[Rfam]
Annotation: SAM riboswitch aptamer (S box leader): a 110-nucleotide RNA sequence from Ectobacillus ponti. The source organism's lineage runs through Bacteria, Bacilli, Caryophanales, Bacillaceae and Ectobacillus.
RNA sequence: CUCUUAUCCCGAGCUGGCGGAGGGACAGGCCCGAUGAAGCCCGGCAACCUGCACGAAAGUGAGAAGGUGCUAACCUGAUGCAAGGCCGCAGAAGCCUUGAGCGAUAAGAG
Dot-bracket structure: ((((((((....(..(((...(((.[[.[)))......))))((((.(((.((......)).)..))))))....]..]]((((((.......))))))...))))))))

The family's consensus secondary structure is taken from published work.